[Rfam]
RNA: Bacterial large subunit ribosomal RNA, nucleotides 864 to 1316
Organism: Archangium sp. Cb G35
RNA sequence: CUCCCCGAAAGAUAUUUAGGUAUCGUCUUGGGUAAUUCAAUACCGGAGGUAGAGCACUGGAACGGCUAGGGGUCUCACCAGAUUACCAAACCGUACCAAACUCCGAAUGCCGGUAAUUGUUAGCCCGGGAAGCAGUCAGUGGGUGAUAACGUCCAUUGGCAAGAGGGGAAUAACCCAGACCGACAGCUAAGGCCCCCAAGUCUAGUCUAAGUGAACACUAGAAAGGAUGUGGCAGGUCAUUGACAACCAGGAGGUUGGCUUAGAAGCAGCCAUCCUUUAAAGAAAGCGUAAUAGCUCACUGGUCGAGACAGGCCGCGCCGAAAAUGUAACGGGGCUCAAGACUAGCGCCGAAGCUUCGGAUUGCAUGCGCCUGGCGCAUGCAGUGGUAGGGGAGCGUUGCAACUACGGCGAAGGUGGACCGCAAGGGCCGCUGGAGUGGUUGCGAGUGCUGAU
Numbered sequence: 001c002u003c004c005c006c007g008a009a010a011g012a013u014a015u016u017u018a019g020g021u022a023u024c025g026u027c028u029u030g031g032g033u034a035a036u037u038c039a040a041u042a043c044c045g046g047a048g049g050u051a052g053a054g055c056a057c058u059g060g061a062a063c064g065g066c067u068a069g070g071g072g073u074c075u076c077a078c079c080a081g082a083u084u085a086c087c088a089a090a091c092c093g094u095a096c097c098a099a100a101c102u103c104c105g106a107a108u109g110c111c112g113g114u115a116a117u118u119g120u121u122a123g124c125c126c127g128g129g130a131a132g133c134a135g136u137c138a139g140u141g142g143g144u145g146a147u148a149a150c151g152u153c154c155a156u157u158g159g160c161a162a163g164a165g166g167g168g169a170a171u172a173a174c175c176c177a178g179a180c181c182g183a184c185a186g187c188u189a190a191g192g193c194c195c196c197c198a199a200g201u202c203u204a205g206u207c208u209a210a211g212u213g214a215a216c217a218c219u220a221g222a223a224a225g226g227a228u229g230u231g232g233c234a235g236g237u238c239a240u241u242g243a244c245a246a247c248c249a250g251g252a253g254g255u256u257g258g259c260u261u262a263g264a265a266g267c268a269g270c271c272a273u274c275c276u277u278u279a280a281a282g283a284a285a286g287c288g289u290a291a292u293a294g295c296u297c298a299c300u301g302g303u304c305g306a307g308a309c310a311g312g313c314c315g316c317g318c319c320g321a322a323a324a325u326g327u328a329a330c331g332g333g334g335c336u337c338a339a340g341a342c343u344a345g346c347g348c349c350g351a352a353g354c355u356u357c358g359g360a361u362u363g364c365a366u367g368c369g370c371c372u373g374g375c376g377c378a379u380g381c382a383g384u385g386g387u388a389g390g391g392g393a394g395c396g397u398u399g400c401a402a403c404u405a406c407g408g409c410g411a412a413g414g415u416g417g418a419c420c421g422c423a424a425g426g427g428c429c430g431c432u433g434g435a436g437u438g439g440u441u442g443c444g445a446g447u448g449c450u451g452a453u
Base pairs, nucleotide, nucleotide: 001394002393003392004391005390006389011024012023013022014021015020026131027129028128029127030126031125032124033123037122038119039118040117041115042114043113044112045111046110052104053102054101058098059097060096062094063093064092065091069087070086071084072083073082074081075080135160136159137158138157139156140155141154142153143152144151165176166175167174180359181358182357183356185355186354187353191349192348193347200346202345203344204343205342206341207340225319226318229316230315231314232313233312236309237308238307246303247302248301249300250299252276253275254274257271258270259269277281282297286295287294360384361383362382363381364380365379366378367377368376369375395448397445398444399443400442401441402440403439404438405437406436413432414431415430416429417428419426420425